[Rfam]
Rfam assigns this 347-nucleotide RNA from Mastacembelus armatus to the family "Vertebrate telomerase RNA". Rfam classes the family as a non-coding RNA gene. The family is grouped with related families in Rfam's "Telomerase clan". Its family is annotated with telomerase activity, telomere maintenance via telomerase and telomerase catalytic core complex in the Gene Ontology. The base pairs follow the family's consensus structure, which is taken from published work. Telomerase is a ribonucleoprotein reverse transcriptase that synthesises telomeric DNA. Telomerase RNAs differ greatly in sequence and structure between vertebrates, ciliates and yeasts, but they share a 5' pseudoknot structure close to the template sequence. Vertebrate telomerase RNAs have a 3' H/ACA snoRNA-like domain.

RNA sequence: UGCUUCGCGGGGUGUUUUAUCUAACCCUAAGUAAGGGCGACCUCAUGUACCUAAUGUUUGCUGUUUUUGACUCCGGCUUUCAGCAUGCUACAUGGGGUUUUUGAAAUAGCGUUGAAACCGUGUACGAAGCAGAAAAAGCCGAGACCAUCACUCCGCCACGUUCAGUGUCCCGUCAGAAACACCGUGAAUGACCCGCCGUGGUCAGCCUGGCUGCCGCGAAGAGUUGGCCUCUGCUGCUCCGGUGUUUUCUUGCCGGGAGUCUCGGUAACUGAGCAGAUGAAAACUGAGCAGGGCGGCUCUACUCGACCCAGCAGUGGUCUGGUUAGGAAGCCCAUGCUCAAACAUCC
Numbered sequence: 001u002g003c004u005u006c007g008c009g010g011g012g013u014g015u016u017u018u019a020u021c022u023a024a025c026c027c028u029a030a031g032u033a034a035g036g037g038c039g040a041c042c043u044c045a046u047g048u049a050c051c052u053a054a055u056g057u058u059u060g061c062u063g064u065u066u067u068u069g070a071c072u073c074c075g076g077c078u079u080u081c082a083g084c085a086u087g088c089u090a091c092a093u094g095g096g097g098u099u100u101u102u103g104a105a106a107u108a109g110c111g112u113u114g115a116a117a118c119c120g121u122g123u124a125c126g127a128a129g130c131a132g133a134a135a136a137a138g139c140c141g142a143g144a145c146c147a148u149c150a151c152u153c154c155g156c157c158a159c160g161u162u163c164a165g166u167g168u169c170c171c172g173u174c175a176g177a178a179a180c181a182c183c184g185u186g187a188a189u190g191a192c193c194c195g196c197c198g199u200g201g202u203c204a205g206c207c208u209g210g211c212u213g214c215c216g217c218g219a220a221g222a223g224u225u226g227g228c229c230u231c232u233g234c235u236g237c238u239c240c241g242g243u244g245u246u247u248u249c250u251u252g253c254c255g256g257g258a259g260u261c262u263c264g265g266u267a268a269c270u271g272a273g274c275a276g277a278u279g280a281a282a283a284c285u286g287a288g289c290a291g292g293g294c295g296g297c298u299c300u301a302c303u304c305g306a307c308c309c310a311g312c313a314g315u316g317g318u319c320u321g322g323u324u325a326g327g328a329a330g331c332c333c334a335u336g337c338u339c340a341a342a343c344a345u346c347c
Stems, first nucleotide, its partner, number of pairs: 001158002007156008041097005056088002059085005072144002075140003078136003161273006168258005174252002178246007197218005203213004220232004286339004291333004297327001299326003303322001305319004